The record is an 89-nucleotide sequence from Acanthochromis polyacanthus, which matches "Small nucleolar RNA SNORD60" in Rfam. Gene Ontology terms of the family: RNA processing and nucleolus. Taxonomically the source falls in Acanthochromis (Eukaryota, Metazoa, Actinopteri, Teleostei).
RNA sequence: AGCCGGUGACGACAAACUAAAUAAACUUUUCUGACACCUACUAUGAGAGCUGACCUGCAGCUCCUGAUUCAAACUUUAUUCUGAGGCUC
Number, nucleotide and partner (000 for none) at each position: 001a088002g087003c086004c085005g000006g000007u000008g000009a000010c000011g000012a000013c000014a000015a000016a000017c000018u000019a000020a000021a000022u000023a000024a000025a000026c000027u000028u000029u000030u000031c000032u000033g000034a000035c000036a000037c000038c000039u000040a000041c000042u000043a000044u000045g000046a000047g000048a000049g061050c060051u059052g058053a000054c000055c000056u000057g000058c052059a051060g050061c049062u000063c000064c000065u000066g000067a000068u000069u000070c000071a000072a000073a000074c000075u000076u000077u000078a000079u000080u000081c000082u000083g000084a000085g004086g003087c002088u001089c000
Pairs were carried over by alignment from the consensus structure, which was predicted with PFOLD. Rfam 15.1 lists 825 matches to the family in 373 species.